[Rfam]
RNA sequence: UGCUUAUGGAGAAAGGCGGAGGGAUUAGACCCUGCGAUGUCUUAGCAACCUGUGCUUACAAGGUGCUACAUUCUACUUGGCCCAAACAACAAUGGCCGGGAAAGAUAAGCG
Numbered sequence: 001u002g003c004u005u006a007u008g009g010a011g012a013a014a015g016g017c018g019g020a021g022g023g024a025u026u027a028g029a030c031c032c033u034g035c036g037a038u039g040u041c042u043u044a045g046c047a048a049c050c051u052g053u054g055c056u057u058a059c060a061a062g063g064u065g066c067u068a069c070a071u072u073c074u075a076c077u078u079g080g081c082c083c084a085a086a087c088a089a090c091a092a093u094g095g096c097c098g099g100g101a102a103a104g105a106u107a108a109g110c111g
Base pairs, nucleotide, nucleotide: 001111002110003109004108005107006106007105013043014042015041016040017039021032022031023030026075027074028073029072044067045066046065047064049063050062051060052059053058071103076100077099078098079097080096081095